The family of this 52-nucleotide RNA sequence from Notamacropus eugenii is "MAT2A 3'UTR stem loop C". A reference for the family is Parker et al. (2011), "New families of human regulatory RNA structures identified by comparative analysis of vertebrate genomes", Genome Res. It is annotated as a cis-regulatory element. The family has 18 seed sequences and 275 matches in Rfam 15.1.
[Rfam]
RNA sequence: GCUUUCUGAGCAGUUGGUGUAGAUACAGAUAAAUCAGCUUCUUUCAGAGAGU
Number, nucleotide and partner (000 for none) at each position: 001g052002c051003u050004u049005u048006c047007u046008g045009a044010g000011c000012a039013g038014u037015u036016g035017g034018u033019g026020u025021a000022g000023a000024u000025a020026c019027a000028g000029a000030u000031a000032a000033a018034u017035c016036a015037g014038c013039u012040u000041c000042u000043u000044u009045c008046a007047g006048a005049g004050a003051g002052u001